Description
PreQ1 (pre queuosine) riboswitch aptamer: a 45-nucleotide sequence from Wohlfahrtiimonas chitiniclastica. The family has 43 seed sequences and 873 matches in Rfam 15.1. The source organism's lineage runs through Bacteria, Pseudomonadati, Gammaproteobacteria, Wohlfahrtiimonas and Wohlfahrtiimonas chitiniclastica. This family is a bacterial riboswitch that binds to the metabolite preQ1, an intermediate in the biosynthesis of the modified nucleoside queuosine from GTP. One example of this riboswitch is located in the leader of the Bacillus subtilis ykvJKLM (queCDEF) operon which encodes four genes necessary for queuosine production. PreQ1 binding to the riboswitch aptamer is thought to induce premature transcription termination within the leader to down-regulate expression of these genes. A search with the family's covariance model found it, with a score of 49 bits. The base pairs follow the family's consensus structure.
RNA sequence: UUUCCCGUGGUUCGCAAUCCUCCCACACAAAAAAACUAAGGAGUU
Numbered sequence: 001u002u003u004c005c006c007g008u009g010g011u012u013c014g015c016a017a018u019c020c021u022c023c024c025a026c027a028c029a030a031a032a033a034a035a036c037u038a039a040g041g042a043g044u045u
Base pairs, nucleotide, nucleotide: 007026008025009024010023016037